[Rfam]
RNA sequence: CGAAAUUCCGAGGGGGGCAUCGUAACGGUGCUGAGAUGGCGGUGAGCCGGACCCUUGAACCUGAUCCGGGUCAUACCGGCGUAGGAACGGAAACGGCCAUAUCA
Dot-bracket structure: .....(((((((((..(((((.....)))))......(((.....)))...))))....((((..((((......))))..))))..)))))............

TPP riboswitch aptamer (THI element): a 104-nucleotide sequence from Pseudorhizobium pelagicum. The base pairs follow the family's consensus structure, which is taken from published work. It scores 78 bits against the family's covariance model. Taxonomically the source falls in Pseudorhizobium (Bacteria, Pseudomonadota, Alphaproteobacteria, Rhizobiaceae).